[Rfam]
RNA sequence: UCACGUUGAGCCUCAUCAACAGGCCGCAGUCAGAUCCGCGCCAGGCAACGGGGGCGUGGG
Numbered sequence: 001u002c003a004c005g006u007u008g009a010g011c012c013u014c015a016u017c018a019a020c021a022g023g024c025c026g027c028a029g030u031c032a033g034a035u036c037c038g039c040g041c042c043a044g045g046c047a048a049c050g051g052g053g054g055c056g057u058g059g060g
Stems, first nucleotide, its partner, number of pairs: 004050005010024004035060006041053002

Rfam assigns this 60-nucleotide sequence to the family "Glutamine-II riboswitch aptamer". A reference for the family is Huang et al. (2019), "Structure and ligand binding of the glutamine-II riboswitch", Nucleic Acids Res.